[Rfam]
Nucleotides: 373
Stems, first nucleotide, its partner, number of pairs: 001029009070129006077119002082116002084113002090106005130347007137338007144308002147305006154256005159250004165180006183235005189227005194219004199214003203210002236245003259281010285299005310319003322363001324361006
Number, partner (000 for none) and nucleotide at each position: 001029g002028u003027a004026u005025a006024c007023g008022a009021g010000g011000u012000u013000a014000g015000u016000u017000c018000a019000u020000u021009c022008u023007c024006g025005u026004a027003u028002g029001c030000a031000u032000g033000a034000u035000u036000g037000g038000a039000c040000a041000a042000a043000u044000c045000a046000a047000a048000a049000u050000u051000u052000c053000a054000a055000u056000u057000u058000g059000g060000u061000u062000c063000a064000g065000g066000g067000c068000c069000u070129c071128c072127c073126u074125c075124c076000a077119g078118c079000g080000a081000c082116g083115g084113c085112c086000g087000a088000a089000c090106u091105g092104g093103g094102c095000u096000a097000g098000c099000c100000a101000u102094g103093c104092c105091c106090a107000c108000a109000g110000u111000a112085g113084g114000a115083c116082u117000a118078g119077c120000a121000a122000a123000c124075g125074g126073a127072g128071g129070g130347a131346c132345u133344a134343g135342c136341c137338g138337u139336a140335g141334u142333g143332g144308c145307g146000a147305g148304c149303u150302c151301c152300c153000u154256g155255g156254g157253u158252g159250g160249u161248c162247u163000a164000a165180g166179u167178c168177c169176u170175g171000a172000g173000u174000a175170c176169a177168g178167g179166a180165c181000a182000g183235u184234c185233g186232u187231c188000a189227g190226u191225a192224g193223u194219u195218c196217g197216a198000c199214g200213u201212g202000a203210g204209c205000a206000g207000a208000a209204g210203c211000c212201c213200a214199c215000c216197u217196c218195g219194a220000g221000a222000u223193g224192c225191u226190a227189u228000g229000u230000g231187g232186a233185c234184g235183a236245g237244g238243g239000c240000a241000u242000g243238c244237c245236c246000a247162a248161g249160a250159c251000a252158c253157a254156c255155c256154u257000u258000a259281a260280c261279c262278c263277u264276a265275g266274c267273g268272g269000g270000g271000g272268u273267c274266g275265c276264u277263a278262g279261g280260g281259u282000g283000a284000a285299a286298u287297c288296a289295c290000a291000c292000c293000a294000c295289g296288u297287g298286a299285u300152g301151g302150g303149a304148g305147u306000a307145c308144g309000a310319c311318c312317u313000g314000a315000u316000a317312g318311g319310g320000c321000g322363c323000u324361g325360c326359a327358g328357a329356g330000g331000c332143c333142c334141a335140c336139u337138a338137u339000u340000a341136g342135g343134c344133u345132a346131g347130u348000a349000u350000a351000a352000a353000a354000a355000u356329c357328u358327c359326u360325g361324c362000u363322g364000u365000a366000c367000a368000u369000g370000g371000c372000a373000c